[Rfam]
RNA sequence: GGUCCCAAACCCGUAGAUCCGAACUUGUGUUUACUGACAUCACAAGCUUGUAUCUACAGGUCUGUGUCUG
Numbered sequence: 001g002g003u004c005c006c007a008a009a010c011c012c013g014u015a016g017a018u019c020c021g022a023a024c025u026u027g028u029g030u031u032u033a034c035u036g037a038c039a040u041c042a043c044a045a046g047c048u049u050g051u052a053u054c055u056a057c058a059g060g061u062c063u064g065u066g067u068c069u070g
Stems, first nucleotide, its partner, number of pairs: 002068001004066001006064002010060002015055004020050003024046006

This 70-nucleotide RNA sequence from Labrus bergylta belongs to the Rfam family "mir-10 microRNA precursor family". Lineage of the source: Eukaryota > Bilateria > Actinopterygii > Neoteleostei > Labrus. For this family Rfam cites "An extensive class of small RNAs in Caenorhabditis elegans" (Lee and Ambros, Science, 2001). The family has 36 seed sequences and 3,853 matches in Rfam 15.1. Its family is annotated with RISC complex and miRNA-mediated post-transcriptional gene silencing in the Gene Ontology.